[Rfam]
RNA sequence: AUGUCUUUUUCGCUGAAUUCUGUAAAAGAAGCGGGGGAACCACCGGUGUGUGCAGUUUUCGAAGCUGCCAUGCCCAAGGGGUGAAUCUCGAACAUUCGAGUAGGGCUACUCUUCAGGCCCGAAUCCGUCAGCUAACCCCGUAAGCGUAGAAGAGAGGAGAC
Numbered sequence: 001a002u003g004u005c006u007u008u009u010u011c012g013c014u015g016a017a018u019u020c021u022g023u024a025a026a027a028g029a030a031g032c033g034g035g036g037g038a039a040c041c042a043c044c045g046g047u048g049u050g051u052g053c054a055g056u057u058u059u060c061g062a063a064g065c066u067g068c069c070a071u072g073c074c075c076a077a078g079g080g081g082u083g084a085a086u087c088u089c090g091a092a093c094a095u096u097c098g099a100g101u102a103g104g105g106c107u108a109c110u111c112u113u114c115a116g117g118c119c120c121g122a123a124u125c126c127g128u129c130a131g132c133u134a135a136c137c138c139c140g141u142a143a144g145c146g147u148a149g150a151a152g153a154g155a156g157g158a159g160a161c
Base pairs, nucleotide, nucleotide: 011146012145013144014143018030019029020028031141032140033139034138035137036136041078079126080125081124087100088099089098090097103120104119105118106117